[Rfam]
RNA sequence: CGAUCAUCUUAUUUUUUUGUUCGUAUAUCCUCAAUAAUACGGUUUGAGGGUCUCUACAGGGAACCAUAAAUUCCUAACUACGAAUAUAGGGUGUACUGUA
Numbered sequence: 001c002g003a004u005c006a007u008c009u010u011a012u013u014u015u016u017u018u019g020u021u022c023g024u025a026u027a028u029c030c031u032c033a034a035u036a037a038u039a040c041g042g043u044u045u046g047a048g049g050g051u052c053u054c055u056a057c058a059g060g061g062a063a064c065c066a067u068a069a070a071u072u073c074c075u076a077a078c079u080a081c082g083a084a085u086a087u088a089g090g091g092u093g094u095a096c097u098g099u100a
Stems, first nucleotide, its partner, number of pairs: 018086008029049006059075005